Rfam assigns this 157-nucleotide RNA sequence from Oribacterium sp. C9 to the family "Clostridiales-1 RNA". The family has 194 seed sequences and 1,172 matches in Rfam 15.1. The family's consensus secondary structure is taken from published work.
[Rfam]
RNA sequence: UAAGUCCAGUAUCAGGCGGCUGUACAUUAGUGCAAGCUUGCUUGCACUAAUGUACAGACAUCUGAUACGACAACAGGAAUCGAGAAGAAGCGCGAAAGCGCGGAUUCGAGAUUCCUGUAGCAUUGCGAGAGCGAAGCGAAGCAAUGCGCAGGACUUA
Dot-bracket structure: (((((((.((((..((.(.(((((((((((.(((((....))))).))))))))))).).))..)))).....((((((((..(((...((((....))))...)))..))))))))..(((((((....((...))...)))))))...)))))))